[Rfam]
RNA sequence: GCCUGUGUAGCUCAGUGGAAGAGCGGGAGACAUAGUCUCCAGGACGCUGGUUCGAUCCCAGCCGCACGCU
Dot-bracket structure: ((.((((..((((.......)))).(((((.....))))).....(((((.......))))))))).)).
Numbered sequence: 001g002c003c004u005g006u007g008u009a010g011c012u013c014a015g016u017g018g019a020a021g022a023g024c025g026g027g028a029g030a031c032a033u034a035g036u037c038u039c040c041a042g043g044a045c046g047c048u049g050g051u052u053c054g055a056u057c058c059c060a061g062c063c064g065c066a067c068g069c070u
Stems, first nucleotide, its partner, number of pairs: 001069002004066004010024004026040005046062005

Rfam assigns this 70-nucleotide RNA sequence from Phytophthora palmivora to the family "tRNA". From the family's description: Transfer RNA (tRNA) molecules are approximately 80 nucleotides in length. A search with the family's covariance model found it, with a score of 47 bits. The family's RNA type in Rfam is transfer RNA. Rfam links the family to the GO term triplet codon-amino acid adaptor activity. The source organism's lineage runs through Eukaryota, Sar, Stramenopiles, Oomycota and Phytophthora. The family's consensus secondary structure is taken from published work.